RNA sequence: UAGCAUCCUUAAUAAACCCCCUGGUUGUCAUUUGUGGUCUCUGGGACAAGAAAGGAUGCAAGAUCAAUCUUAGGAUCCAAAGCCGAGAGCAGUGUGUCAGUAGCUCUCGGUUAUUUCACCCCUAAGACAGAA
Number, nucleotide and partner (000 for none) at each position: 001u000002a000003g059004c058005a057006u056007c000008c000009u051010u050011a000012a000013u000014a000015a000016a000017c000018c000019c000020c045021c044022u043023g042024g041025u000026u000027g000028u000029c000030a000031u000032u000033u000034g000035u000036g000037g000038u000039c000040u000041c024042u023043g022044g021045g020046a000047c000048a000049a000050g010051a009052a000053a000054g000055g000056a006057u005058g004059c003060a000061a000062g000063a000064u131065c130066a000067a000068u127069c126070u125071u124072a123073g122074g121075a000076u000077c000078c000079a000080a000081a112082g111083c110084c109085g108086a107087g106088a000089g104090c103091a000092g000093u000094g000095u100096g000097u000098c000099a000100g095101u000102a000103g090104c089105u000106c087107u086108c085109g084110g083111u082112u081113a000114u000115u000116u000117c000118a000119c000120c000121c074122c073123u072124a071125a070126g069127a068128c000129a000130g065131a064132a000
RNA: Small nucleolar RNA SNORA14
Organism: Sparus aurata